RNA sequence: ACCGCCCUCAACGCUACCCUUCUAUGCUACAAACGGAGAGAUCUGCGCAAGCACAUCUCUCGACCCUUCGCGGCGUCAACCUGGCAUGUGAGAAAUUCGGAGUAUGUCCCAAAGGCCAGGCCUUGCUUGGCCGCCUGAUCACUCAGCGUCUGCCCUCGGGUGGGCGCCGAAUGUUGACGGUCCUGCCGGUGACGGCACGAGGUGAUCCCACCUCCGCAGUUGGCAUCAGAAAUGCAGGACGCUGGCUGUCUCUGUUCACGCGGAGCUCCAGUCCAGUCGUUCCUCUGGGAGGGUCACUGCCGGGAUUGCUUGCAAUGACAAGCUGAAGCGCAAUGGGUGGCGUGUCGUCGACCUUCCCUUGUGGGAGGAAGACUUCAUCAUUCAAUUCCGAUCAUUCUCUGGGCGGU
Numbered sequence: 001a002c003c004g005c006c007c008u009c010a011a012c013g014c015u016a017c018c019c020u021u022c023u024a025u026g027c028u029a030c031a032a033a034c035g036g037a038g039a040g041a042u043c044u045g046c047g048c049a050a051g052c053a054c055a056u057c058u059c060u061c062g063a064c065c066c067u068u069c070g071c072g073g074c075g076u077c078a079a080c081c082u083g084g085c086a087u088g089u090g091a092g093a094a095a096u097u098c099g100g101a102g103u104a105u106g107u108c109c110c111a112a113a114g115g116c117c118a119g120g121c122c123u124u125g126c127u128u129g130g131c132c133g134c135c136u137g138a139u140c141a142c143u144c145a146g147c148g149u150c151u152g153c154c155c156u157c158g159g160g161u162g163g164g165c166g167c168c169g170a171a172u173g174u175u176g177a178c179g180g181u182c183c184u185g186c187c188g189g190u191g192a193c194g195g196c197a198c199g200a201g202g203u204g205a206u207c208c209c210a211c212c213u214c215c216g217c218a219g220u221u222g223g224c225a226u227c228a229g230a231a232a233u234g235c236a237g238g239a240c241g242c243u244g245g246c247u248g249u250c251u252c253u254g255u256u257c258a259c260g261c262g263g264a265g266c267u268c269c270a271g272u273c274c275a276g277u278c279g280u281u282c283c284u285c286u287g288g289g290a291g292g293g294u295c296a297c298u299g300c301c302g303g304g305a306u307u308g309c310u311u312g313c314a315a316u317g318a319c320a321a322g323c324u325g326a327a328g329c330g331c332a333a334u335g336g337g338u339g340g341c342g343u344g345u346c347g348u349c350g351a352c353c354u355u356c357c358c359u360u361g362u363g364g365g366a367g368g369a370a371g372a373c374u375u376c377a378u379c380a381u382u383c384a385a386u387u388c389c390g391a392u393c394a395u396u397c398u399c400u401g402g403g404c405g406g407u
Stems, first nucleotide, its partner, number of pairs: 001407004011398001015340001018337003023088004036061006098390005107305004184197005199214005217299003221296004236284003342378003347373002